Shown here is a 78-nucleotide RNA sequence from Anopheles gambiae, a member of the family "mir-87 microRNA precursor family".
[Rfam]
RNA sequence: UCUCGGCCCAGCCUGAAAUUUGCUAAACCUGAUACGUGUUCGAAACCAAGGUGAGCAAAUAUUCAGGUGUGUCGACGA
Numbered sequence: 001u002c003u004c005g006g007c008c009c010a011g012c013c014u015g016a017a018a019u020u021u022g023c024u025a026a027a028c029c030u031g032a033u034a035c036g037u038g039u040u041c042g043a044a045a046c047c048a049a050g051g052u053g054a055g056c057a058a059a060u061a062u063u064c065a066g067g068u069g070u071g072u073c074g075a076c077g078a
Stems, first nucleotide, its partner, number of pairs: 003075005011068006018060004023055002026052001028051003

Pairs were carried over by alignment from the consensus structure, which was predicted with RNAalifold.